[Rfam]
RNA sequence: AACUUCUUGUUCAAGCACUGUGCUAAAACUGUGGAAACUAAGGUUGUACCUUGGCUUUCAUAGUAAUGCUAGUAUGGUACACACAAGAAGAAGAGUAAAUGCACUAGAUCAGUAGAAAGACUUGGGUGGACCUCUUUCUUAAUGUCCAGUGUCCUAGUCUGGAGACUUGGUGCAACACUG
Numbered sequence: 001a002a003c004u005u006c007u008u009g010u011u012c013a014a015g016c017a018c019u020g021u022g023c024u025a026a027a028a029c030u031g032u033g034g035a036a037a038c039u040a041a042g043g044u045u046g047u048a049c050c051u052u053g054g055c056u057u058u059c060a061u062a063g064u065a066a067u068g069c070u071a072g073u074a075u076g077g078u079a080c081a082c083a084c085a086a087g088a089a090g091a092a093g094a095g096u097a098a099a100u101g102c103a104c105u106a107g108a109u110c111a112g113u114a115g116a117a118a119g120a121c122u123u124g125g126g127u128g129g130a131c132c133u134c135u136u137u138c139u140u141a142a143u144g145u146c147c148a149g150u151g152u153c154c155u156a157g158u159c160u161g162g163a164g165a166c167u168u169g170g171u172g173c174a175a176c177a178c179u180g
Stems, first nucleotide, its partner, number of pairs: 018077002021074005028067001030065002034058002038054007100174008125150001127148004
RNA: Small nucleolar RNA SNORA81
Organism: Salvator merianae